[Rfam]
RNA sequence: UAAUUAUGGAUAGCGCCAGACCUGCAGAUAUCGCAGGUGACGAGGAUAGAACUUAUCGAAUAUUCGGCGGAUGGUUCUAGGGACUGCGCCCUUAAAAGAAAAAUUAAAAAUUGGCGGUAACGCUAUAACAGAGUUUUUCCAAGCAGAAUA
Numbered sequence: 001u002a003a004u005u006a007u008g009g010a011u012a013g014c015g016c017c018a019g020a021c022c023u024g025c026a027g028a029u030a031u032c033g034c035a036g037g038u039g040a041c042g043a044g045g046a047u048a049g050a051a052c053u054u055a056u057c058g059a060a061u062a063u064u065c066g067g068c069g070g071a072u073g074g075u076u077c078u079a080g081g082g083a084c085u086g087c088g089c090c091c092u093u094a095a096a097a098g099a100a101a102a103a104u105u106a107a108a109a110a111u112u113g114g115c116g117g118u119a120a121c122g123c124u125a126u127a128a129c130a131g132a133g134u135u136u137u138u139c140c141a142a143g144c145a146g147a148a149u150a
Stems, first nucleotide, its partner, number of pairs: 020038006027031001048078005056067004079092004098139006112125005
Shown here is a 150-nucleotide sequence from Vagococcus vulneris, a member of the family "glmS glucosamine-6-phosphate activated ribozyme aptamer". A search with the family's covariance model found it, with a score of 95 bits. The literature on the family includes a 2006 paper in Nat Struct Mol Biol by Jansen et al., "Backbone and nucleobase contacts to glucosamine-6-phosphate in the glmS ribozyme". By type it is a riboswitch. Taxonomically the source falls in Vagococcus (Bacteria, Bacillota, Bacilli, Lactobacillales). This entry contains a glucosamine-6-phosphate activated ribozyme that is found in the mRNA for GlmS. GlmS is an enzyme that uses fructose-6-phosphate and glutamine to generate glucosamine-6-phosphate. The ribozyme catalyses self cleavage of the glmS mRNA that is thought to regulate GlmS activity.